A member of the RNA family "U2 spliceosomal RNA" from Capsicum baccatum, 196 nucleotides long. Rfam links the family to the GO terms mRNA branch site recognition, U2 snRNP and pre-mRNA branch point binding. The match comes from Rfam's covariance-model search (148 bits). Lineage of the source: Eukaryota > eudicotyledons > Solanales > Capsiceae > Capsicum.
RNA sequence: AUACCUUUUUCGGCCUUUUGGCUAAGAUCAUGUGUAGUAUCUGUUCUUAUCAAUUUAAUAUUUGAUAUGUGAUCCAUUGGCUCACACAAUAUUAACUCAAUAUUUUGAGGGGGAAGGUUCAUCGAAGUAGCUUGCUACUUAGGCCUUCAUGUGUCGUCUAGGUGUUGCACUACAACCUAAGCCUGGCGUGCCCCAU
Numbered sequence: 001a002u003a004c005c006u007u008u009u010u011c012g013g014c015c016u017u018u019u020g021g022c023u024a025a026g027a028u029c030a031u032g033u034g035u036a037g038u039a040u041c042u043g044u045u046c047u048u049a050u051c052a053a054u055u056u057a058a059u060a061u062u063u064g065a066u067a068u069g070u071g072a073u074c075c076a077u078u079g080g081c082u083c084a085c086a087c088a089a090u091a092u093u094a095a096c097u098c099a100a101u102a103u104u105u106u107g108a109g110g111g112g113g114a115a116g117g118u119u120c121a122u123c124g125a126a127g128u129a130g131c132u133u134g135c136u137a138c139u140u141a142g143g144c145c146u147u148c149a150u151g152u153g154u155c156g157u158c159u160a161g162g163u164g165u166u167g168c169a170c171u172a173c174a175a176c177c178u179a180a181g182c183c184u185g186g187c188g189u190g191c192c193c194c195a196u
Stems, first nucleotide, its partner, number of pairs: 008027003012023004048067006069085004074080002113148007127138004151189006159179005